[Rfam]
RNA: Small nucleolar RNA snoR100
RNA sequence: AGAUGAAGGAAGCAUGGUACUGUGCACGAAAACUGAGCUUGCUGCGGAUUGACAUGUCUGCCCUCUUUGAGUUUUUCUUUGAUAAGAGGGCCUGGUCGAGAUCCACAUUC
Number, nucleotide and partner (000 for none) at each position: 001a000002g000003a000004u000005g000006a000007a000008g000009g000010a000011a000012g025013c024014a023015u022016g000017g000018u000019a000020c000021u000022g015023u014024g013025c012026a000027c000028g000029a000030a000031a000032a000033c000034u000035g000036a000037g000038c000039u000040u000041g000042c000043u000044g000045c000046g093047g092048a000049u090050u089051g000052a000053c000054a000055u000056g083057u082058c081059u000060g077061c000062c000063c000064u000065c000066u000067u000068u000069g000070a000071g000072u000073u000074u000075u000076u000077c060078u000079u000080u000081g058082a057083u056084a000085a000086g000087a000088g000089g050090g049091c000092c047093u046094g000095g000096u000097c000098g000099a000100g000101a000102u000103c000104c000105a000106c000107a000108u000109u000110c000